[Rfam]
RNA sequence: GAGUUGGCCAAGGUAACCGCUGCUUCGUUGAUGUCCUUUGGGAGACUGACGAGGGGGAGGAAAGUCCGGGCUCCAUAGGGCAGGGUGCCAGAUAACGUCUGGGGGGCGCGAGCCUACGACCAGUGCAGCAGAGAGUAUACCGCCGAUGGCCUUCUUCGGAAGGCACAGGUAAGGGUGAAAGGGUGCGGUAAGAGCGCACCGCGCGACUAGUAAUAGUUCGUGGCACGGUAAACUCCACCCGGAGCAAGACCAAAUAGGUCCCUAAUGGCGUGGCCCGCGUUGGGGACGGGUAGGUUGCUUGAGCCUGUGAGUGAUUGCAGGCCUAGAGGAAUGGUUACCACCGCGCAAGCGGAACAGAACCCGGCUUAUAUGGCCAACUCACCA
Numbered sequence: 001g002a003g004u005u006g007g008c009c010a011a012g013g014u015a016a017c018c019g020c021u022g023c024u025u026c027g028u029u030g031a032u033g034u035c036c037u038u039u040g041g042g043a044g045a046c047u048g049a050c051g052a053g054g055g056g057g058a059g060g061a062a063a064g065u066c067c068g069g070g071c072u073c074c075a076u077a078g079g080g081c082a083g084g085g086u087g088c089c090a091g092a093u094a095a096c097g098u099c100u101g102g103g104g105g106g107c108g109c110g111a112g113c114c115u116a117c118g119a120c121c122a123g124u125g126c127a128g129c130a131g132a133g134a135g136u137a138u139a140c141c142g143c144c145g146a147u148g149g150c151c152u153u154c155u156u157c158g159g160a161a162g163g164c165a166c167a168g169g170u171a172a173g174g175g176u177g178a179a180a181g182g183g184u185g186c187g188g189u190a191a192g193a194g195c196g197c198a199c200c201g202c203g204c205g206a207c208u209a210g211u212a213a214u215a216g217u218u219c220g221u222g223g224c225a226c227g228g229u230a231a232a233c234u235c236c237a238c239c240c241g242g243a244g245c246a247a248g249a250c251c252a253a254a255u256a257g258g259u260c261c262c263u264a265a266u267g268g269c270g271u272g273g274c275c276c277g278c279g280u281u282g283g284g285g286a287c288g289g290g291u292a293g294g295u296u297g298c299u300u301g302a303g304c305c306u307g308u309g310a311g312u313g314a315u316u317g318c319a320g321g322c323c324u325a326g327a328g329g330a331a332u333g334g335u336u337a338c339c340a341c342c343g344c345g346c347a348a349g350c351g352g353a354a355c356a357g358a359a360c361c362c363g364g365c366u367u368a369u370a371u372g373g374c375c376a377a378c379u380c381a382c383c384a
Stems, first nucleotide, its partner, number of pairs: 001380010011369001012339007020057002023054008062367003066364005071244004078276004083240005088102005103117001104115004118235002123233002125229002140174002142170003147165002150162001182200006201224001202222005207216003248296004258287006267281005303322008
Dot-bracket structure: ((((((((((((((((((.((.((((((((................)))))))).))....[[[.[[[[[((((...[[[[.((((((((((.....)))))(((((....)))).)((...((((.............(((((..((.(...........).))..)))..)).......((((((.......))))))(((((((((....))).))))).)...))..)))))))))))))...((((......((((((...(((((.]]]]))))))))))).....))))......((((((((....))))))))..........)))))))....................]]]]]]]].).))))))))))....
Shown here is a 384-nucleotide RNA sequence from Photobacterium aphoticum, a member of the family "Bacterial RNase P class A".
Ribonuclease P (RNase P) is a ubiquitous endoribonuclease, found in archaea, bacteria and eukarya as well as chloroplasts and mitochondria.
The organism belongs to Photobacterium, within Bacteria.
The family's RNA type in Rfam is ribozyme.